Nucleotides: 135
Base pairs, nucleotide, nucleotide: 020110021109023108024107027104028103029102034090036089037088038087039086040085041084115134116133117132119130120129121128122127
Number, partner (000 for none) and nucleotide at each position: 001000c002000u003000u004000u005000a006000a007000c008000a009000a010000u011000c012000c013000g014000g015000a016000a017000c018000a019000a020110g021109c022000u023108g024107a025000a026000a027104a028103u029102u030000g031000a032000a033000a034090g035000u036089u037088u038087a039086c040085a041084g042000c043000u044000g045000a046000a047000c048000a049000u050000c051000a052000c053000u054000c055000u056000c057000c058000g059000u060000a061000g062000c063000a064000g065000u066000a067000c068000u069000g070000a071000g072000u073000g074000g075000u076000g077000g078000a079000u080000u081000a082000g083000u084041c085040u086039g087038u088037a089036a090034c091000a092000g093000a094000g095000u096000c097000u098000c099000u100000c101000a102029a103028a104027u105000a106000a107024u108023c109021g110020c111000a112000a113000u114000g115134c116133g117132a118000c119130g120129g121128u122127g123000g124000a125000a126000a127122c128121a129120c130119c131000u132117u133116c134115g135000g

The family of this 135-nucleotide RNA sequence from Rahnella aquatilis is "Salmonella enterica Typhi npcRNA 44". It scores 70 bits against the family's covariance model.